[Rfam]
RNA sequence: UCCCUGGGCGCCUCUAGCCAGAAGCCUGCGCCUCAGAGAGUCCCGGGCAGCGCCCGGCGCGCCGGGCCAUGCUGCGACGGCCGCGGCCGAGCUCGGAGCGGCGGUAGCGCCCCCUGGGAAGCGGCCCGCGAUGCCCCGGCCGCUGUGAACUGUGCAGCCCGCCCGAACACGCUCCGCCCGGGACCGGCUCAGCCUCCGACACGCUGGACUCUGAGCGGCCGCGACAAGCAGCGAAGAGUCGAGAGAGCUGCAAACGCGGGGAAGGCCUCCCCGCACAGGUGGGGGAAGCCAGCCGGCCGGUGCAGCGCGGCGACACACUCUCCGGCUGGCGCUGGCGGCUAGGG
Number, nucleotide and partner (000 for none) at each position: 001u285002c284003c283004c282005u281006g280007g000008g000009c000010g276011c000012c000013u000014c000015u000016a000017g000018c000019c000020a000021g043022a000023a041024g000025c000026c036027u035028g034029c000030g000031c000032c000033u000034c028035a027036g026037a000038g000039a000040g000041u023042c000043c021044c000045g271046g000047g000048c096049a000050g094051c000052g000053c089054c000055c086056g000057g084058c083059g082060c000061g081062c080063c079064g078065g000066g075067c074068c000069a000070u000071g000072c000073u000074g067075c066076g000077a000078c064079g063080g062081c061082c059083g058084c057085g000086g055087c000088c000089g053090a000091g000092c000093u000094c050095g000096g048097a000098g000099c000100g000101g146102c145103g144104g143105u142106a000107g141108c000109g140110c139111c138112c000113c000114c000115u000116g134117g000118g132119a000120a000121g129122c128123g127124g000125c000126c000127c123128g122129c121130g000131a000132u118133g000134c116135c000136c000137c000138g111139g110140c109141c107142g105143c104144u103145g102146u101147g000148a000149a000150c261151u260152g000153u258154g257155c256156a000157g255158c000159c000160c000161g251162c250163c000164c000165g248166a000167a000168c000169a000170c245171g000172c243173u242174c241175c000176g239177c238178c000179c236180g000181g000182g000183a000184c207185c206186g205187g204188c203189u199190c198191a000192g196193c000194c000195u000196c192197c000198g190199a189200c000201a000202c000203g188204c187205u186206g185207g184208a000209c000210u234211c233212u000213g000214a000215g000216c000217g229218g000219c000220c000221g000222c000223g000224a000225c000226a000227a000228g000229c217230a000231g000232c000233g211234a210235a000236g179237a000238g177239u176240c000241g174242a173243g172244a000245g170246a000247g000248c165249u000250g162251c161252a000253a000254a000255c157256g155257c154258g153259g000260g151261g150262a000263a000264g000265g000266c000267c000268u000269c000270c000271c045272c000273g000274c000275a000276c010277a000278g000279g000280u006281g005282g004283g003284g002285g001286a000287a000288g000289c000290c000291a000292g340293c000294c338295g000296g336297c335298c334299g333300g332301u331302g330303c329304a327305g326306c325307g000308c000309g322310g321311c000312g000313a000314c000315a000316c000317a000318c000319u000320c000321u310322c309323c000324g000325g306326c305327u304328g000329g303330c302331g301332c300333u299334g298335g297336c296337g000338g294339c000340u292341a000342g000343g000344g000

Background:
A member of the RNA family "TrkB IRES" from Prolemur simus, 344 nucleotides long. A reference for the family is Dobson et al. (2005), "Internal initiation of translation of the TrkB mRNA is mediated by multiple regions within the 5' leader", Nucleic Acids Res. The family's RNA type in Rfam is internal ribosome entry site. Rfam's curators write: This family represents the TrkB internal ribosome entry site (IRES) which is present in the 5' leader sequence of the mRNA. TrkB is a neurotrophin receptor which is essential for the development and maintenance of the nervous system. The IRES element allows cap-independent translation of TrkB which may be needed for efficient translation in neuronal dendrites. A search with the family's covariance model found it, with a score of 219 bits. The base pairs follow the family's consensus structure, which was predicted with RNAfold.